[Rfam]
RNA sequence: UCGUUAUCAAGAAAGGUUGAGGGAUUAGACCCUGUGAAACCUUGGCAACCCUCCUGUAAUGGGAGAAGGUGCUACGUUCUACCACGCCAGUCGUGGAUAGAUAACUC
Numbered sequence: 001u002c003g004u005u006a007u008c009a010a011g012a013a014a015g016g017u018u019g020a021g022g023g024a025u026u027a028g029a030c031c032c033u034g035u036g037a038a039a040c041c042u043u044g045g046c047a048a049c050c051c052u053c054c055u056g057u058a059a060u061g062g063g064a065g066a067a068g069g070u071g072c073u074a075c076g077u078u079c080u081a082c083c084a085c086g087c088c089a090g091u092c093g094u095g096g097a098u099a100g101a102u103a104a105c106u107c
Base pairs, nucleotide, nucleotide: 003105004104005103006102007101008100013043014042015041016040017039021032022031023030026081027080028079029078044073045072046071047070049069050068051065052064053063054062077099082096083095084094085093086092
This 107-nucleotide RNA sequence from Christiangramia forsetii belongs to the Rfam family "SAM riboswitch aptamer (S box leader)". Its family is annotated with regulation of gene expression in the Gene Ontology. Taxonomically the source falls in Christiangramia forsetii (Bacteria, Pseudomonadati, Bacteroidota, Flavobacteriia). Its Rfam clan is "SAM clan". The sequence is in the family's curated seed alignment.